The family of this 103-nucleotide sequence from Halomicrobium mukohataei is "L4-Archaeoglobi ribosomal protein leades".
[Rfam]
RNA sequence: CUGAUGGGCGCGUUCGGGUCAAUUGCGGACUGCAACACCCGAUCUCUCUCCCGGUACCUUCCGCGAUGGAAGUGCCCGGCGAGGGGGAGCGCGUCACCGUCAG
Dot-bracket structure: (((((..((((((.((((....(((((...)))))..)))).((((((((((((.....................)))).))))))))))))))....)))))

Record summary: It is one of the family's seed sequences. On this family, see Eckert and Weinberg, BMC Microbiol 2020: "Discovery of 20 novel ribosomal leader candidates in bacteria and archaea".